[Rfam]
RNA: Small nucleolar RNA Z157/R69/R10
Organism: Lathyrus oleraceus
RNA sequence: AUUAGUGCGGUGACGAUAGAUUUUGCGGAUUAGAGUUUCUGAUCUGGGAAUCUUCACCCACUAUUUGAUUACAAAACCCUUGGCUGUCCGAGCACUAUU
Numbered sequence: 001a002u003u004a005g006u007g008c009g010g011u012g013a014c015g016a017u018a019g020a021u022u023u024u025g026c027g028g029a030u031u032a033g034a035g036u037u038u039c040u041g042a043u044c045u046g047g048g049a050a051u052c053u054u055c056a057c058c059c060a061c062u063a064u065u066u067g068a069u070u071a072c073a074a075a076a077c078c079c080u081u082g083g084c085u086g087u088c089c090g091a092g093c094a095c096u097a098u099u
Stems, first nucleotide, its partner, number of pairs: 001099001003097006038068002043063001045060004